[Rfam]
RNA: c-di-GMP-II-GAG riboswitch aptamer
RNA sequence: CGUCGUACGGGAGGCUCUGAUCCGCCGGUGGCACCUGACGGCCACCUUCAGCCGACGGGGAGCCACUGGUGAGACCGGCCCGCGGGCCG
Numbered sequence: 001c002g003u004c005g006u007a008c009g010g011g012a013g014g015c016u017c018u019g020a021u022c023c024g025c026c027g028g029u030g031g032c033a034c035c036u037g038a039c040g041g042c043c044a045c046c047u048u049c050a051g052c053c054g055a056c057g058g059g060g061a062g063c064c065a066c067u068g069g070u071g072a073g074a075c076c077g078g079c080c081c082g083c084g085g086g087c088c089g
Stems, first nucleotide, its partner, number of pairs: 001089002004086001006084001008082004013064003022058003026054004040076002043071004